[Rfam]
RNA sequence: GAAUUACUGUGAGUUCCCUUCAAGCACUUUACGAACUACUUUUAAGGUAUUAUGUGAAGUAUUUGGGGGAACUCUUGGUGCAAC
Numbered sequence: 001g002a003a004u005u006a007c008u009g010u011g012a013g014u015u016c017c018c019u020u021c022a023a024g025c026a027c028u029u030u031a032c033g034a035a036c037u038a039c040u041u042u043u044a045a046g047g048u049a050u051u052a053u054g055u056g057a058a059g060u061a062u063u064u065g066g067g068g069g070a071a072c073u074c075u076u077g078g079u080g081c082a083a084c
Stems, first nucleotide, its partner, number of pairs: 005080005011074010022064003026060008035051001
mir-395 microRNA precursor family: an 84-nucleotide RNA sequence from Triticum aestivum. A reference for the family is Jones-Rhoades and Bartel (2004), "Computational Identification of Plant MicroRNAs and Their Targets, Including a Stress-Induced miRNA", Mol Cell. mir-395 was identified in both Arabidopsis thaliana and Oryza sativa computationally and was later experimentally verified. mir-395 is thought to target mRNAs coding for ATP sulphurylases. The organism belongs to Triticum, within Eukaryota. Rfam 15.1 lists 2,798 matches to the family in 234 species.